Notes:
Shown here is a 109-nucleotide RNA from Hyphomicrobium denitrificans, a member of the family "TPP riboswitch aptamer (THI element)". Its family is annotated with thiamine pyrophosphate binding in the Gene Ontology.

RNA sequence: ACUGUUUCCGAGGGGCGCCGGUUGUCCGGCUGAGAUCGUGUAAGGAGCGCGAGCACCCUUAGAACCUGAUCCGGGUCAUGCCGGCGAAGGGACGGGCAAACCAGGUGGC
Dot-bracket structure: ......((((((((.((((((....)))))......((((.......)))).)..)))).....(((...((((......))))...)))..)))).............